[Rfam]
RNA sequence: UUUCCUGAGGAGCGCUGCAACGGUGUCGGAGGCUGGGCUUGUGCCGGCUCCACCCGCUAGGCUCAGGAAUCCUUCUUGCUACAACGGCGCUCAUCGUUA
Numbered sequence: 001u002u003u004c005c006u007g008a009g010g011a012g013c014g015c016u017g018c019a020a021c022g023g024u025g026u027c028g029g030a031g032g033c034u035g036g037g038c039u040u041g042u043g044c045c046g047g048c049u050c051c052a053c054c055c056g057c058u059a060g061g062c063u064c065a066g067g068a069a070u071c072c073u074u075c076u077u078g079c080u081a082c083a084a085c086g087g088c089g090c091u092c093a094u095c096g097u098u099a
Stems, first nucleotide, its partner, number of pairs: 002069007021056003
Description:
This 99-nucleotide RNA sequence from Allopusillimonas soli belongs to the Rfam family "SAH (S-adenosyl-L-homocysteine) riboswitch aptamer". It scores 58 bits against the family's covariance model.